RNA sequence: GUGAGGUGAUGACACAGUUUAUCCAUUCUCUGAGUGUAGUGGUGCUACCCUCCUGCAGCACCCCAGUUCCUGUUCUAGGAUCUGGGUGCUGUGCAGCCUCCAGAGACCCUCUAGUCUCCCAGUGUCCUACUGGGGGCUGUUGUGGUGUGUGGCUGGCUGCCUUGUAGGAGUGAAGUGGUACCAGCAGGGUUGGAGCCCUUUGUGGCUCUGUCCUCACCGAGAUGAGGAAUGGUGUCUGAUCAC
Numbered sequence: 001g002u003g004a005g006g007u008g009a010u011g012a013c014a015c016a017g018u019u020u021a022u023c024c025a026u027u028c029u030c031u032g033a034g035u036g037u038a039g040u041g042g043u044g045c046u047a048c049c050c051u052c053c054u055g056c057a058g059c060a061c062c063c064c065a066g067u068u069c070c071u072g073u074u075c076u077a078g079g080a081u082c083u084g085g086g087u088g089c090u091g092u093g094c095a096g097c098c099u100c101c102a103g104a105g106a107c108c109c110u111c112u113a114g115u116c117u118c119c120c121a122g123u124g125u126c127c128u129a130c131u132g133g134g135g136g137c138u139g140u141u142g143u144g145g146u147g148u149g150u151g152g153c154u155g156g157c158u159g160c161c162u163u164g165u166a167g168g169a170g171u172g173a174a175g176u177g178g179u180a181c182c183a184g185c186a187g188g189g190u191u192g193g194a195g196c197c198c199u200u201u202g203u204g205g206c207u208c209u210g211u212c213c214u215c216a217c218c219g220a221g222a223u224g225a226g227g228a229a230u231g232g233u234g235u236c237u238g239a240u241c242a243c
Stems, first nucleotide, its partner, number of pairs: 010242003017235002020232001024227001026226003030221002034217002039185002042182001043180006049172001050170005057090007066082001068080004093160006106146002112139005118134007187214003191210004196205002

This 243-nucleotide RNA from Galbula dea belongs to the Rfam family "Small nucleolar RNA SNORD17". Its family is annotated with RNA processing and nucleolus in the Gene Ontology. The snoRNA HBI-43 belongs to the C/D family of snoRNAs, guiding 2'O-ribose methylation at position U3797 of the 28S rRNA. Pseudouridylation in position U3797 is predicted to be guided by the H/ACA snoRNA ACA48. The family has 19 seed sequences and 1,015 matches in Rfam 15.1. NCBI's taxonomy places the organism under Eukaryota, Opisthokonta, Metazoa, Sauropsida, Galbula. The match comes from Rfam's covariance-model search (125 bits).